[Rfam]
RNA: Pseudomonas sRNA P26
RNA sequence: CGCCAAGGGUCCGCGGCCUAUGUAUGGGCCGAGUACUGGUGGUUUAAACCACCAGUAU
Numbered sequence: 001c002g003c004c005a006a007g008g009g010u011c012c013g014c015g016g017c018c019u020a021u022g023u024a025u026g027g028g029c030c031g032a033g034u035a036c037u038g039g040u041g042g043u044u045u046a047a048a049c050c051a052c053c054a055g056u057a058u
Base pairs, nucleotide, nucleotide: 014031015030016029017028018027034057035056036055037054038053039052040051041050042049043048